[Rfam]
RNA sequence: AACAUAAAUAGAGGUGCAAAUAAAGGGGUAGUUUUUGAAUGCUAAGGAUAGGAACAUCCAAUGUCAAAAAUGAAGGAGUUGUUUGCCGAAAGGAUAUUUUGGUUCUUAAAGAUAUUCUUGGUGAUAGAAAAUAGUAUUUCUAUCACUGUCAUGAAGUUCUUAUGGAGAGCUAUUUAUGUA
Number, nucleotide and partner (000 for none) at each position: 001a000002a000003c000004a000005u000006a175007a174008a173009u172010a171011g170012a000013g000014g000015u000016g086017c085018a084019a083020a082021u081022a080023a079024a000025g000026g000027g000028g000029u000030a000031g071032u070033u069034u068035u067036u066037g065038a064039a000040u000041g000042c000043u000044a000045a000046g000047g000048a000049u000050a000051g000052g000053a000054a000055c000056a000057u000058c000059c000060a000061a000062u000063g000064u038065c037066a036067a035068a034069a033070a032071u031072g000073a000074a000075g000076g000077a000078g000079u023080u022081g021082u020083u019084u018085g017086c016087c000088g000089a000090a119091a118092g117093g116094a115095u114096a113097u112098u111099u110100u109101g000102g000103u000104u000105c000106u000107u000108a000109a100110a099111g098112a097113u096114a095115u094116u093117c092118u091119u090120g147121g146122u145123g144124a143125u142126a141127g140128a139129a138130a137131a000132u000133a000134g000135u000136a000137u130138u129139u128140c127141u126142a125143u124144c123145a122146c121147u120148g000149u165150c164151a163152u162153g161154a160155a000156g000157u000158u000159c000160u154161u153162a152163u151164g150165g149166a000167g000168a000169g000170c011171u010172a009173u008174u007175u006176a000177u000178g000179u000180a000

The record is a 180-nucleotide sequence from Clostridium estertheticum, which matches "Lysine riboswitch aptamer" in Rfam. Pairs were carried over by alignment from the consensus structure, which is taken from published work.